RNA sequence: GACGGGUCACCGCCUAAUCGCGCCCGCGUCACCGCGGUCGCGUGCCGGGGACCCACAAGACCCUGGGGUGAAGCCGCAGCAGCACCGCGGCCGGGCGCGCUUCCCGCCCGAACCCGACAGCUAACCCGGUCGGCGGCCGAGGGAAGAAAG
Numbered sequence: 001g002a003c004g005g006g007u008c009a010c011c012g013c014c015u016a017a018u019c020g021c022g023c024c025c026g027c028g029u030c031a032c033c034g035c036g037g038u039c040g041c042g043u044g045c046c047g048g049g050g051a052c053c054c055a056c057a058a059g060a061c062c063c064u065g066g067g068g069u070g071a072a073g074c075c076g077c078a079g080c081a082g083c084a085c086c087g088c089g090g091c092c093g094g095g096c097g098c099g100c101u102u103c104c105c106g107c108c109c110g111a112a113c114c115c116g117a118c119a120g121c122u123a124a125c126c127c128g129g130u131c132g133g134c135g136g137c138c139g140a141g142g143g144a145a146g147a148a149a150g
Base pairs, nucleotide, nucleotide: 011135012134013133014132019042020041021040022039044130045129046128047127048126049125054065055064066115067114068113074090075089076088077087093109094108095107096106
Shown here is a 150-nucleotide RNA sequence from Actinoplanes sp. N902-109, a member of the family "c-di-AMP riboswitch aptamer (ydaO/yuaA leader)". Taxonomically the source falls in Actinoplanes (Bacteria, Bacillati, Actinomycetota, Micromonosporaceae).